Shown here is a 129-nucleotide sequence from Jatropha curcas, a member of the family "U11 spliceosomal RNA".
Gene Ontology terms of the family: mRNA 5'-splice site recognition, U11 snRNP and pre-mRNA 5'-splice site binding.
Clan: U1 clan.
The match comes from Rfam's covariance-model search (80 bits).
Rfam classes the family as a spliceosomal small nuclear RNA.
The literature on the family includes a 2008 paper in J Mol Evol by Marz et al., "Evolution of spliceosomal snRNA genes in metazoan animals".

RNA sequence: UAAAAGGGUCGGUUGGCUAAAUGUGCCACACUCACCCUCGUUCGGUGGGUGCCGUAUGGCUAUCAAGACAUAUGGCCGACAUAAUUUGUGGAAACUGGUUAGGGUUGGCUCGCAUGGCCGACCCUCCAA
Number, nucleotide and partner (000 for none) at each position: 001u000002a000003a000004a000005a000006g000007g000008g080009u079010c078011g077012g076013u000014u028015g027016g026017c025018u000019a000020a000021a000022u000023g000024u000025g017026c016027c015028a014029c051030a050031c049032u048033c047034a046035c045036c044037c000038u000039c000040g000041u000042u000043c000044g036045g035046u034047g033048g032049g031050u030051g029052c075053c074054g073055u072056a071057u070058g069059g000060c000061u000062a000063u000064c000065a000066a000067g000068a000069c058070a057071u056072a055073u054074g053075g052076c012077c011078g010079a009080c008081a000082u000083a000084a000085u000086u000087u000088g000089u000090g000091g000092a000093a000094a000095c000096u000097g000098g127099u000100u000101a000102g000103g123104g122105u121106u120107g119108g118109c117110u116111c000112g000113c000114a000115u000116g110117g109118c108119c107120g106121a105122c104123c103124c000125u000126c000127c098128a000129a000